[Rfam]
RNA: SAM (S-adenosyl methionine) riboswitch aptamer
Organism: Janibacter sp. HTCC2649
RNA sequence: GGUCACGAGUACCAGUGUUCAGCCCCGGCUUGCUGGUCGGCAACCCUCCUCCGCGGUGGGGUGCUCCGGGUGACGACCUGGUCGGCUGCAGCAACGCAGUUGGCAAGCGCGGACU
Numbered sequence: 001g002g003u004c005a006c007g008a009g010u011a012c013c014a015g016u017g018u019u020c021a022g023c024c025c026c027g028g029c030u031u032g033c034u035g036g037u038c039g040g041c042a043a044c045c046c047u048c049c050u051c052c053g054c055g056g057u058g059g060g061g062u063g064c065u066c067c068g069g070g071u072g073a074c075g076a077c078c079u080g081g082u083c084g085g086c087u088g089c090a091g092c093a094a095c096g097c098a099g100u101u102g103g104c105a106a107g108c109g110c111g112g113a114c115u
Base pairs, nucleotide, nucleotide: 001078002077003076004075009038011037012036013035014034015033016032021030022029039065040064041063044061045060046059048056049055081104082103083102084101085100086099087098088097089096